RNA sequence: AGAGUCCUGUGCAGUGAAGGAAUAGCAAACCACACUGGCCCCGAGUCAUGCGUUGUGCAUCGCGAGGUGCAGGGCGAAGCGUUGACAGGGGAAUCUGUAGGCCAGCCAUUGAGCCGCGAAAGCUUUAAAUUAGUUGAGGGUGCCGACGCCGUUAGCGUGGUGGAAGGCAAUACGGACGGGCGCGUUCUUGCGAGUGUCUGGACGGCCCUGCGUGGUCUUAGACCC
Numbered sequence: 001a002g003a004g005u006c007c008u009g010u011g012c013a014g015u016g017a018a019g020g021a022a023u024a025g026c027a028a029a030c031c032a033c034a035c036u037g038g039c040c041c042c043g044a045g046u047c048a049u050g051c052g053u054u055g056u057g058c059a060u061c062g063c064g065a066g067g068u069g070c071a072g073g074g075c076g077a078a079g080c081g082u083u084g085a086c087a088g089g090g091g092a093a094u095c096u097g098u099a100g101g102c103c104a105g106c107c108a109u110u111g112a113g114c115c116g117c118g119a120a121a122g123c124u125u126u127a128a129a130u131u132a133g134u135u136g137a138g139g140g141u142g143c144c145g146a147c148g149c150c151g152u153u154a155g156c157g158u159g160g161u162g163g164a165a166g167g168c169a170a171u172a173c174g175g176a177c178g179g180g181c182g183c184g185u186u187c188u189u190g191c192g193a194g195u196g197u198c199u200g201g202a203c204g205g206c207c208c209u210g211c212g213u214g215g216u217c218u219u220a221g222a223c224c225c
Base pairs, nucleotide, nucleotide: 012037013036014035015034016033019031020030023193025191026190039091040090041089042088045086046085047084048083049081050080051076052075053074054073056071057070058069059068060067061066111217113216114215115214116213117212118211137209138208139207140206141205142168143167144166147162148161149160150159173204174203177200178199179198180197181196182195183194
Dot-bracket structure: ...........(((((..((..[.[[...)).))))).((((..((((((((((.((((((....)))))).))))...)).)))).))))...................(.((((((..................((((((((..((((........))))...)))....((..(((((((......]].])))))))..))))))).)))))))........

Group II catalytic intron D1-D4-6: a 225-nucleotide sequence from Acidisarcina polymorpha. From the family's description: Group II introns are found in rRNA, tRNA and mRNA of organelles in fungi, plants and protists, and also in mRNA in bacteria. It scores 178 bits against the family's covariance model. Its family is annotated with Group II intron splicing in the Gene Ontology. On this family, see Bonen and Vogel, Trends Genet 2001: "The ins and outs of group II introns".